Shown here is an 85-nucleotide sequence from Paenalicyclobacillus cellulosilyticus, a member of the family "c-di-GMP-I riboswitch aptamer". A search with the family's covariance model found it, with a score of 82 bits. The source organism's lineage runs through Bacteria, Bacillati, Bacillota, Caryophanales and Paenalicyclobacillus. The base pairs follow the family's consensus structure, which is taken from published work.
[Rfam]
RNA sequence: UGCAUCGAAAGGCAAACCCGCCGAAAGGCGGCGGCGCAAAGCCACGGGUCUAAGGGCGAUUGCCUAUGACAGCCGGGCUGCCGGA
Numbered sequence: 001u002g003c004a005u006c007g008a009a010a011g012g013c014a015a016a017c018c019c020g021c022c023g024a025a026a027g028g029c030g031g032c033g034g035c036g037c038a039a040a041g042c043c044a045c046g047g048g049u050c051u052a053a054g055g056g057c058g059a060u061u062g063c064c065u066a067u068g069a070c071a072g073c074c075g076g077g078c079u080g081c082c083g084g085a
Stems, first nucleotide, its partner, number of pairs: 012037002018031005040079004045075003048070003055064003